[Rfam]
RNA: T-box leader
RNA sequence: UCAAAUGCGAUGAAGGGAAACAAGGCUUGCUGUUUCAGUCAAAGAGAGCCGCCGUUUGGUGAAAGGCGGUAAGGACAGCGGGCUAUAACUCCUCCCCGAGCAGAUAAAGCGAAAAGUCAAGUAGUUUUAUUCGGGCGCUCCCGUUACAGAGCGGCACAUUGUUCGAUGUGCGUAAGGCAUAGGCGGUGACGUUUAUGUGAAUGAGAGUGGUAACACGGGUAGCUCGCUCGUCUCUUGA
Numbered sequence: 001u002c003a004a005a006u007g008c009g010a011u012g013a014a015g016g017g018a019a020a021c022a023a024g025g026c027u028u029g030c031u032g033u034u035u036c037a038g039u040c041a042a043a044g045a046g047a048g049c050c051g052c053c054g055u056u057u058g059g060u061g062a063a064a065g066g067c068g069g070u071a072a073g074g075a076c077a078g079c080g081g082g083c084u085a086u087a088a089c090u091c092c093u094c095c096c097c098g099a100g101c102a103g104a105u106a107a108a109g110c111g112a113a114a115a116g117u118c119a120a121g122u123a124g125u126u127u128u129a130u131u132c133g134g135g136c137g138c139u140c141c142c143g144u145u146a147c148a149g150a151g152c153g154g155c156a157c158a159u160u161g162u163u164c165g166a167u168g169u170g171c172g173u174a175a176g177g178c179a180u181a182g183g184c185g186g187u188g189a190c191g192u193u194u195a196u197g198u199g200a201a202u203g204a205g206a207g208u209g210g211u212a213a214c215a216c217g218g219g220u221a222g223c224u225c226g227c228u229c230g231u232c233u234c235u236u237g238a
Base pairs, nucleotide, nucleotide: 007101008100015096016095017094018093024084025083026082027081028080029079039071048070049069050068051067052066053065104130105129106128107127108126109125110124132143133142134141171199172198173197174196204235205234206233207232215231216230217229218228219227